pan motif: a 92-nucleotide sequence from Oxobacter pfennigii. The base pairs follow the family's consensus structure, which is taken from published work. Taxonomically the source falls in Oxobacter (Bacteria, Bacillota, Clostridia, Eubacteriales).
RNA sequence: GCGGCGGUAUCUCUAUGAGCUGCACGCAAAUUGAGGGCUUUUCCGGCAAAGUUUUAAAAUCUGCUUUGAUCCUUUGUGACAGAGAUAGGUAC
Dot-bracket structure: ((((((((.((.....))))))).))).................................((((((((.((......))))))).)))....